[Rfam]
RNA sequence: UCUAACGGGAAGUGUGUAAGCACACACGUAAUUUGCAAGCGGUGCUUCACGCUCUUCGUUAAAAU
Numbered sequence: 001u002c003u004a005a006c007g008g009g010a011a012g013u014g015u016g017u018a019a020g021c022a023c024a025c026a027c028g029u030a031a032u033u034u035g036c037a038a039g040c041g042g043u044g045c046u047u048c049a050c051g052c053u054c055u056u057c058g059u060u061a062a063a064a065u
Base pairs, nucleotide, nucleotide: 003061004060005059006058007057008056009055011053012052013051014050015049016048018047019046020045021044022043023042027041028040029039
RNA: mir-BHRF1-3 microRNA precursor family